[Rfam]
RNA sequence: CCCUCGGAGUGUUAUAUCAAACGAAAUUAGCCUUUAGUGAAAUCGGAUACGUUGAACAGGGAA
Numbered sequence: 001c002c003c004u005c006g007g008a009g010u011g012u013u014a015u016a017u018c019a020a021a022c023g024a025a026a027u028u029a030g031c032c033u034u035u036a037g038u039g040a041a042a043u044c045g046g047a048u049a050c051g052u053u054g055a056a057c058a059g060g061g062a063a
Base pairs, nucleotide, nucleotide: 001061002060003059004058009050010049011048012047013046022045023044024043030038031037